[Rfam]
RNA sequence: CGAGGGGGUGCAGCAGCAAUUCAUGUUUUGAAGUGCUCAAAAGGAUUCAAAACGUGAGGCGCUGCUAUAUCCCCCCGUGGGAAG
Numbered sequence: 001c002g003a004g005g006g007g008g009u010g011c012a013g014c015a016g017c018a019a020u021u022c023a024u025g026u027u028u029u030g031a032a033g034u035g036c037u038c039a040a041a042a043g044g045a046u047u048c049a050a051a052a053c054g055u056g057a058g059g060c061g062c063u064g065c066u067a068u069a070u071c072c073c074c075c076c077g078u079g080g081g082a083a084g
Base pairs, nucleotide, nucleotide: 001077002076004074005073006072007071009069010068013065014064015063016062017061020058021057022056023055024054025053026052027051028050029049030048031047032046034044
Rfam assigns this 84-nucleotide sequence from Heterocephalus glaber to the family "mir-322 microRNA precursor family". The base pairs follow the family's consensus structure, which was predicted with RNAalifold.